[Rfam]
RNA: MIR9746 microRNA precursor family
Organism: Glycine max
RNA sequence: ACGGUUAUCCAAUUGAGAUUCAAGCACUUUUCUAUGUGGCUUUAAGGUGUGUUUGAAUGGAACACCUUAAAUCCAUGAAGAAAAGUGUUUGAAUUUCAAUUAGAUAACCA
Dot-bracket structure: ..(((((((.((.((((((((((((((((((((.......((((((((((...........)))))))))).......)))))))))))))))))))).)).))))))).